[Rfam]
The record is a 75-nucleotide sequence, which matches "Plastid-rpl20 3UTR RNA" in Rfam. Rfam describes the family as follows. Plastid rpl20 is a non-coding RNA (ncRNA) recognised in plastids. It was found in the three prime untranslated region (3UTR) of rpl20 gene, it presence in the 3UTR region sugest a role in transcript maduration. The base pairs follow the family's consensus structure, which was predicted with LocARNA. It is one of the family's seed sequences.

RNA sequence: AACCGAAUUCCCGGAGAGGGCACUCCGGGAAGAUACAAUAAAUUAAGAUUAAGUGGUAGGAAUCAACGAGCAGGA
Number, nucleotide and partner (000 for none) at each position: 001a000002a000003c000004c000005g000006a000007a000008u031009u030010c029011c028012c027013g026014g025015a024016g023017a000018g000019g000020g000021c000022a000023c016024u015025c014026c013027g012028g011029g010030a009031a008032g000033a000034u000035a000036c000037a000038a000039u000040a000041a000042a000043u000044u000045a000046a000047g000048a000049u000050u000051a000052a000053g000054u000055g000056g000057u000058a000059g000060g000061a000062a000063u000064c000065a000066a000067c074068g000069a000070g000071c000072a000073g000074g067075a000
Rfam classes the family as a cis-regulatory element.